RNA sequence: CCUUCGUGAUGAUGUACACCUGAUGCUUUCGUCUUCUGAGUUUGCUUGAAGCACUAUUGAUGCUCUGAGAAGG
Dot-bracket structure: ((((................................................................).)))
This 73-nucleotide sequence from Chelonoidis abingdonii belongs to the Rfam family "Small nucleolar RNA SNORD59". Its Rfam clan is "SNORD59 clan". Rfam classes the family as a C/D-box small nucleolar RNA.